[Rfam]
RNA sequence: GACUCAAUGAUGAUGCAUUUUUAUACUUUUGUUCUUCUGAAGUUACAAACUUGCAAUGUGGAAGAACAAUUUGGGGACCAGAACUGAUGGGGU
Numbered sequence: 001g002a003c004u005c006a007a008u009g010a011u012g013a014u015g016c017a018u019u020u021u022u023a024u025a026c027u028u029u030u031g032u033u034c035u036u037c038u039g040a041a042g043u044u045a046c047a048a049a050c051u052u053g054c055a056a057u058g059u060g061g062a063a064g065a066a067c068a069a070u071u072u073g074g075g076g077a078c079c080a081g082a083a084c085u086g087a088u089g090g091g092g093u
Stems, first nucleotide, its partner, number of pairs: 003091004

About this RNA
This 93-nucleotide RNA sequence belongs to the Rfam family "Small nucleolar RNA Z159/U59".